The record is a 79-nucleotide RNA sequence from Lactococcus cremoris, which matches "Ribosomal protein L13 leader" in Rfam.
[Rfam]
Nucleotides: 079
Stems, first nucleotide, its partner, number of pairs: 006075007016043007024036002
Number, partner (000 for none) and nucleotide at each position: 001000g002000g003000u004000a005000u006075u007074g008073u009072u010071u011070a012069c013000c014000c015000c016043a017042u018041u019040u020039u021038u022037g023000u024036g025035g026000c027000c028000c029000c030000g031000g032000a033000a034000a035025c036024c037022c038021a039020a040019a041018a042017a043016u044000a045000c046000u047000u048000u049000g050000c051000a052000g053000g054000a055000c056000u057000c058000u059000u060000a061000c062000a063000c064000c065000u066000g067000c068000u069012g070011u071010a072009a073008a074007c075006a076000a077000a078000u079000u
Its family is annotated with regulation of gene expression in the Gene Ontology. NCBI's taxonomy places the organism under Bacteria, Bacillati, Bacilli, Lactococcus, Lactococcus cremoris subsp. cremoris. The family's RNA type in Rfam is cis-regulatory leader. About the family: This family is a putative r-protein leader autoregulatory structure found in B. subtilis and other low-GC Gram-positive bacteria. It is located in the 5' untranslated regions of mRNAs encoding the L13-S9 (rplM-rpsI) ribosomal protein operon. The sequence is in the family's curated seed alignment. The base pairs follow the family's consensus structure, which was predicted with CMfinder.